[Rfam]
RNA sequence: UCUCAUUUAAACGAUAUAUUCCCAUAACCUCUAAUAUAUCCUUGUAACCCUUUAGUUACGCCAGUUUGAUUAAAUUUCAUCAAAACAAA
Numbered sequence: 001u002c003u004c005a006u007u008u009a010a011a012c013g014a015u016a017u018a019u020u021c022c023c024a025u026a027a028c029c030u031c032u033a034a035u036a037u038a039u040c041c042u043u044g045u046a047a048c049c050c051u052u053u054a055g056u057u058a059c060g061c062c063a064g065u066u067u068g069a070u071u072a073a074a075u076u077u078c079a080u081c082a083a084a085a086c087a088a089a
Stems, first nucleotide, its partner, number of pairs: 037068002041064002043060006
RNA: BsrC
Organism: Ruoffia halotolerans